A member of the RNA family "Small nucleolar RNA SNORA24" from Rattus norvegicus, 129 nucleotides long. The family's consensus secondary structure was predicted with RNAfold. The family has 5 seed sequences and 852 matches in Rfam 15.1.

RNA sequence: CUCUGUGUAUCCUUGGACCUAUCUGCCGUGGCAGCCUCACUUCCUGGCCACGGGGGAGCAGAUCCUUGCUACUGGUAAAGCAGUCGUCCUUGGGCUGGUAUUAGAGUCUGGUGUGCACAAAUAACCGUC
Numbered sequence: 001c002u003c004u005g006u007g008u009a010u011c012c013u014u015g016g017a018c019c020u021a022u023c024u025g026c027c028g029u030g031g032c033a034g035c036c037u038c039a040c041u042u043c044c045u046g047g048c049c050a051c052g053g054g055g056g057a058g059c060a061g062a063u064c065c066u067u068g069c070u071a072c073u074g075g076u077a078a079a080g081c082a083g084u085c086g087u088c089c090u091u092g093g094g095c096u097g098g099u100a101u102u103a104g105a106g107u108c109u110g111g112u113g114u115g116c117a118c119a120a121a122u123a124a125c126c127g128u129c
Stems, first nucleotide, its partner, number of pairs: 002054006015040001016038002019034002022031002068125001070123001073119002075116003081104001083102001086099003
It is annotated as an H/ACA-box small nucleolar RNA. From the family's description: ACA24 is a member of the H/ACA class of snoRNA that guide the sites of modification of uridines to pseudouridines. It scores 62 bits against the family's covariance model.